[Rfam]
RNA sequence: UGAUAGCUGUGAAGCGUGAGGUUGCUUUGUCCAAGUAGAUAAAGGUUUUCCGUGGAGCGAAUGUCAAGUUAAGAAACUGGCGACAA
Numbered sequence: 001u002g003a004u005a006g007c008u009g010u011g012a013a014g015c016g017u018g019a020g021g022u023u024g025c026u027u028u029g030u031c032c033a034a035g036u037a038g039a040u041a042a043a044g045g046u047u048u049u050c051c052g053u054g055g056a057g058c059g060a061a062u063g064u065c066a067a068g069u070u071a072a073g074a075a076a077c078u079g080g081c082g083a084c085a086a
Stems, first nucleotide, its partner, number of pairs: 014053003018050004025044007062085004068081004

About this RNA
The family of this 86-nucleotide RNA sequence from Clostridium sp. CAG:411 is "S10-Clostridia ribosomal protein leader". The source organism's lineage runs through Bacteria, Bacillati, Clostridia, Eubacteriales and Clostridium. The family's RNA type in Rfam is cis-regulatory leader.